Shown here is a 294-nucleotide RNA from Aureicoccus marinus, a member of the family "Bacterial RNase P class A".
The family's RNA type in Rfam is ribozyme.
Lineage of the source: Bacteria > Flavobacteriia > Flavobacteriales > Flavobacteriaceae > Aureicoccus.
Rfam links the family to the GO terms ribonuclease P activity, tRNA processing and dimeric ribonuclease P complex.
The match comes from Rfam's covariance-model search (212 bits).
The base pairs follow the family's consensus structure, which is taken from published work.
Ribonuclease P (RNase P) is a ubiquitous endoribonuclease, found in archaea, bacteria and eukarya as well as chloroplasts and mitochondria.
RNA sequence: CGAGCAGGCCACCUUAUCGCUCGUCCUUCGUGGACGGGAGGAAAGUCCGGACACCACAGUGCAGCAUAGCGGGUAACGCCCGUCCGCCGAGAGGUGAGGACCAGUGCAACAGAAAGCAAGUACAGUUCGGCUGUAGUGAAAUCAGGUAAACUCUAUGCGGUGAAACGCCAUGUACACCAGUGUUUGAGGGCGGCACGCCCGAAUUGGGGGGUAGGCGGCUAGAGCUUUCGGGUAACCGGAAGUCCAGAUAAAUGAUAAGGCUCGACAGAAUCCGGCUUAUGGCCUGCUUUUCUU
Numbered sequence: 001c002g003a004g005c006a007g008g009c010c011a012c013c014u015u016a017u018c019g020c021u022c023g024u025c026c027u028u029c030g031u032g033g034a035c036g037g038g039a040g041g042a043a044a045g046u047c048c049g050g051a052c053a054c055c056a057c058a059g060u061g062c063a064g065c066a067u068a069g070c071g072g073g074u075a076a077c078g079c080c081c082g083u084c085c086g087c088c089g090a091g092a093g094g095u096g097a098g099g100a101c102c103a104g105u106g107c108a109a110c111a112g113a114a115a116g117c118a119a120g121u122a123c124a125g126u127u128c129g130g131c132u133g134u135a136g137u138g139a140a141a142u143c144a145g146g147u148a149a150a151c152u153c154u155a156u157g158c159g160g161u162g163a164a165a166c167g168c169c170a171u172g173u174a175c176a177c178c179a180g181u182g183u184u185u186g187a188g189g190g191c192g193g194c195a196c197g198c199c200c201g202a203a204u205u206g207g208g209g210g211g212u213a214g215g216c217g218g219c220u221a222g223a224g225c226u227u228u229c230g231g232g233u234a235a236c237c238g239g240a241a242g243u244c245c246a247g248a249u250a251a252a253u254g255a256u257a258a259g260g261c262u263c264g265a266c267a268g269a270a271u272c273c274g275g276c277u278u279a280u281g282g283c284c285u286g287c288u289u290u291u292c293u294u
Stems, first nucleotide, its partner, number of pairs: 002289010012260007020038007043278003047275005052162004059196004064158005069083005084098001085096004099153002104151002106147002121135006166217004177207005188200004224243008